RNA sequence: UCUCUUUCCCCGCGCGCUCCGAGUGCCUAUAUUCGGGUUGCCACUCGCAAGAGCGGCUAUGGCGAUAAACGAACGUCGAAAUAAGCCUUUCGGACCCGGGGGCGGUACCCGGCGCCUCCACCAGAGCCCGUACGCGAUUCGCGAGACGGGUUCCGGCGGGGGCGAAAUAGGAUCGACGAGGGUGUAAAGGUCGUUCUUUUGCUCGGCAUGGUUCCGCCGUUAUCGGGCCAUUGCAUAGUUGCCAACGACAACAAUGCUCGGGUUGCCGUCGCCGCGUAAGCGGUGCUGGUUCCCAAACCAAAGCCCUUGCGCUUAGCCGCGUAAGGCGGGGCUCGGAGGCGCCUGGCAACAGAAGCCUCCACU
Numbered sequence: 001u002c003u004c005u006u007u008c009c010c011c012g013c014g015c016g017c018u019c020c021g022a023g024u025g026c027c028u029a030u031a032u033u034c035g036g037g038u039u040g041c042c043a044c045u046c047g048c049a050a051g052a053g054c055g056g057c058u059a060u061g062g063c064g065a066u067a068a069a070c071g072a073a074c075g076u077c078g079a080a081a082u083a084a085g086c087c088u089u090u091c092g093g094a095c096c097c098g099g100g101g102g103c104g105g106u107a108c109c110c111g112g113c114g115c116c117u118c119c120a121c122c123a124g125a126g127c128c129c130g131u132a133c134g135c136g137a138u139u140c141g142c143g144a145g146a147c148g149g150g151u152u153c154c155g156g157c158g159g160g161g162g163c164g165a166a167a168u169a170g171g172a173u174c175g176a177c178g179a180g181g182g183u184g185u186a187a188a189g190g191u192c193g194u195u196c197u198u199u200u201g202c203u204c205g206g207c208a209u210g211g212u213u214c215c216g217c218c219g220u221u222a223u224c225g226g227g228c229c230a231u232u233g234c235a236u237a238g239u240u241g242c243c244a245a246c247g248a249c250a251a252c253a254a255u256g257c258u259c260g261g262g263u264u265g266c267c268g269u270c271g272c273c274g275c276g277u278a279a280g281c282g283g284u285g286c287u288g289g290u291u292c293c294c295a296a297a298c299c300a301a302a303g304c305c306c307u308u309g310c311g312c313u314u315a316g317c318c319g320c321g322u323a324a325g326g327c328g329g330g331g332c333u334c335g336g337a338g339g340c341g342c343c344u345g346g347c348a349a350c351a352g353a354a355g356c357c358u359c360c361a362c363u
Stems, first nucleotide, its partner, number of pairs: 040057003044053003061203005071196005077190001086182003090179003096112005113164007204219004209230003213227003329344004335360006
The record is a 363-nucleotide RNA from Allobosea sp. LC85, which matches "Alphaproteobacteria transfer-messenger RNA" in Rfam. A reference for the family is Felden et al. (1997), "Probing the structure of the Escherichia coli 10Sa RNA (tmRNA)", RNA. It is annotated as a non-coding RNA gene. Rfam describes the family as follows. Bacterial tmRNA, also known as 10Sa RNA or SsrA, is named for its dual tRNA and mRNA-like properties. Its role is to liberate the mRNA from a stalled ribosome.